[Rfam]
RNA: MIR5269 microRNA precursor family
RNA sequence: UUGGGUGAAAUCCAUGUGGAUACCAUACUUUGAAAAUAGAUCCCACAUAAAGUGGUGAGACUCACAUGGAUUUCAUCAAA
Numbered sequence: 001u002u003g004g005g006u007g008a009a010a011u012c013c014a015u016g017u018g019g020a021u022a023c024c025a026u027a028c029u030u031u032g033a034a035a036a037u038a039g040a041u042c043c044c045a046c047a048u049a050a051a052g053u054g055g056u057g058a059g060a061c062u063c064a065c066a067u068g069g070a071u072u073u074c075a076u077c078a079a080a
Base pairs, nucleotide, nucleotide: 001080002079004077005076006075007074008073009072010071011070012069013068014067015066016065017064018063024057025056026054027053028052029051030050031049032048